[Rfam]
RNA sequence: CGGGCGGUGUAGUCCCAGGUCAGGUCGGACGCGACCAGAACGUCCUCGCCGAAGUACUCGCCGUCCGCCAGCACGCCGAGGGAGCGCUCGUCGCCGUACUCGGUGGCGCCGAACUUCCCGACCUUGCCGUGGGCGAUCAGGAACACCGCGUCAGCCGGGGCGCUGGUCUCCGCCAGGACGUCGCCCUGGCCGUACUCGCGCUGCUCGAAGCGGUCCGCGAGACCGGUGAGCGCGUCGCCGCCGAAGCCGCGCAGCGCGGGCAGCUCCGCCAGCUCGCCGGGCACCACCCGAACGUCGGAGCCGGUGUUGGUGAACGUGAUCAGGCCGUCCCCGAGGAUGUAGGUCAACCGGCGGUUGACCCGGUAGACGCCACCGGCGGUCUGGACCCAGGGAAGAACGCGCAGCAGCCACCGGGAGGUGAUCUCCUGCAUCUGGGGGACGGACUUGGUGGUCGUCGCGAGGUUGCGCGCGGCCGCGGUGCUCAGGCUCAGCCGGGGGUCCUCGC
Numbered sequence: 001c002g003g004g005c006g007g008u009g010u011a012g013u014c015c016c017a018g019g020u021c022a023g024g025u026c027g028g029a030c031g032c033g034a035c036c037a038g039a040a041c042g043u044c045c046u047c048g049c050c051g052a053a054g055u056a057c058u059c060g061c062c063g064u065c066c067g068c069c070a071g072c073a074c075g076c077c078g079a080g081g082g083a084g085c086g087c088u089c090g091u092c093g094c095c096g097u098a099c100u101c102g103g104u105g106g107c108g109c110c111g112a113a114c115u116u117c118c119c120g121a122c123c124u125u126g127c128c129g130u131g132g133g134c135g136a137u138c139a140g141g142a143a144c145a146c147c148g149c150g151u152c153a154g155c156c157g158g159g160g161c162g163c164u165g166g167u168c169u170c171c172g173c174c175a176g177g178a179c180g181u182c183g184c185c186c187u188g189g190c191c192g193u194a195c196u197c198g199c200g201c202u203g204c205u206c207g208a209a210g211c212g213g214u215c216c217g218c219g220a221g222a223c224c225g226g227u228g229a230g231c232g233c234g235u236c237g238c239c240g241c242c243g244a245a246g247c248c249g250c251g252c253a254g255c256g257c258g259g260g261c262a263g264c265u266c267c268g269c270c271a272g273c274u275c276g277c278c279g280g281g282c283a284c285c286a287c288c289c290g291a292a293c294g295u296c297g298g299a300g301c302c303g304g305u306g307u308u309g310g311u312g313a314a315c316g317u318g319a320u321c322a323g324g325c326c327g328u329c330c331c332c333g334a335g336g337a338u339g340u341a342g343g344u345c346a347a348c349c350g351g352c353g354g355u356u357g358a359c360c361c362g363g364u365a366g367a368c369g370c371c372a373c374c375g376g377c378g379g380u381c382u383g384g385a386c387c388c389a390g391g392g393a394a395g396a397a398c399g400c401g402c403a404g405c406a407g408c409c410a411c412c413g414g415g416a417g418g419u420g421a422u423c424u425c426c427u428g429c430a431u432c433u434g435g436g437g438g439a440c441g442g443a444c445u446u447g448g449u450g451g452u453c454g455u456c457g458c459g460a461g462g463u464u465g466c467g468c469g470c471g472g473c474c475g476c477g478g479u480g481c482u483c484a485g486g487c488u489c490a491g492c493c494g495g496g497g498g499u500c501c502u503c504g505c
Stems, first nucleotide, its partner, number of pairs: 006387003010383003014379002018325001025319003032312001035310004040305002047300001049298004054233002057230007065111001067109002077102004082097001084095001118221001122217001127212001130209001131206005140197001143196001149192002155189007163177001165174003234293002240282003246278001249277003253274003257268003326339004348376004353371002360366001388428005394422001397419002400415001402413001404412001434473001437470001440467002443464001444462003448458002474504002477500003481496003485492001
Record summary:
Rfam assigns this 505-nucleotide sequence from Frankia canadensis to the family "Saccharopolyspora sRNA 350". It scores 164 bits against the family's covariance model. The base pairs follow the family's consensus structure, which was predicted with RNAfold. The literature on the family includes a 2013 paper in PLoS One by Liu et al., "Prediction and characterization of small non-coding RNAs related to secondary metabolites in Saccharopolyspora erythraea". NCBI's taxonomy places the organism under Bacteria, Bacillati, Actinomycetota, Actinomycetes, Frankia.